About this RNA: Shown here is a 75-nucleotide RNA from Bugula neritina, a member of the family "mir-216 microRNA precursor family". The family is grouped with related families in Rfam's "mir-216 clan". The family has 57 seed sequences and 1,667 matches in Rfam 15.1.

RNA sequence: AGACUAUGUAAUAUCAGCUGGUAAAUCUGAAUUGACUCCUGUGUUUUCAGGAUAUCUGCUGGUAUUUUAUAGUUU
Numbered sequence: 001a002g003a004c005u006a007u008g009u010a011a012u013a014u015c016a017g018c019u020g021g022u023a024a025a026u027c028u029g030a031a032u033u034g035a036c037u038c039c040u041g042u043g044u045u046u047u048c049a050g051g052a053u054a055u056c057u058g059c060u061g062g063u064a065u066u067u068u069a070u071a072g073u074u075u
Base pairs, nucleotide, nucleotide: 003073004072005071006070007069010066011065012064013063014062015061016060017059020057021056023053026051027050028049029048030047031046